[Rfam]
RNA sequence: UUACAGAACGUUUUAGCUAUUGAACUGUUUGGUCCCUCUUUGACAAGGAUCAAUUUGUUCUUUGAAAAACAGUUCAUUAGCUAAAACGUUCUGUAAC
Numbered sequence: 001u002u003a004c005a006g007a008a009c010g011u012u013u014u015a016g017c018u019a020u021u022g023a024a025c026u027g028u029u030u031g032g033u034c035c036c037u038c039u040u041u042g043a044c045a046a047g048g049a050u051c052a053a054u055u056u057g058u059u060c061u062u063u064g065a066a067a068a069a070c071a072g073u074u075c076a077u078u079a080g081c082u083a084a085a086a087c088g089u090u091c092u093g094u095a096a097c
Stems, first nucleotide, its partner, number of pairs: 001096006011086009021076008033065002049059001051057002
Rfam assigns this 97-nucleotide sequence from Plutella xylostella to the family "mir-8517 microRNA precursor family".
The organism belongs to Plutella, within Eukaryota.
It scores 74 bits against the family's covariance model.
The family's consensus secondary structure was predicted with RNAalifold.